[Rfam]
RNA sequence: AAAAAAGCAGGGACCUGUUGCCUUUGUGAACAGGUCUCUCGUAAACUUCAGGGAAAUCAGUUACAUUGUUAUUGGGUGAACCUCUGUUUUAUGUUUCCGUGGCUGAAGGUUCAGUAAAUGAUGGAACAUUU
Number, nucleotide and partner (000 for none) at each position: 001a000002a000003a000004a000005a048006a047007g046008c000009a000010g000011g037012g036013a000014c034015c033016u032017g031018u000019u000020g000021c000022c000023u000024u000025u000026g000027u000028g000029a000030a000031c017032a016033g015034g014035u000036c012037u011038c000039u000040c000041g000042u000043a000044a000045a000046c007047u006048u005049c000050a000051g000052g000053g000054a000055a000056a000057u000058c000059a000060g000061u000062u000063a000064c123065a122066u121067u120068g119069u118070u117071a000072u000073u000074g000075g000076g000077u113078g112079a111080a110081c109082c108083u107084c000085u000086g000087u000088u000089u000090u000091a000092u000093g000094u000095u000096u000097c000098c000099g000100u000101g000102g000103c000104u000105g000106a000107a083108g082109g081110u080111u079112c078113a077114g000115u000116a000117a070118a069119u068120g067121a066122u065123g064124g000125a000126a000127c000128a000129u000130u000131u000
A member of the RNA family "Small nucleolar RNA snoR74" from Salix purpurea, 131 nucleotides long. It scores 122 bits against the family's covariance model. The literature on the family includes a 2002 paper in Curr Biol by Marker et al., "Experimental RNomics: identification of 140 candidates for small non-messenger RNAs in the plant Arabidopsis thaliana".